[Rfam]
Rfam assigns this 86-nucleotide RNA from Olea europaea to the family "Small nucleolar RNA snoR14". The pairing is the family consensus, mapped onto this sequence. The family's RNA type in Rfam is C/D-box small nucleolar RNA. The match comes from Rfam's covariance-model search (80 bits).
RNA sequence: GCGAGGUGACGAUAGAAUCAUGAAGUCUGUCAAUCCACUGACGACAGUGUGAUGUCAAUCCAUGAAUCCCGACAGGUUCUGAUCGC
Dot-bracket structure: ((((..............................................................................))))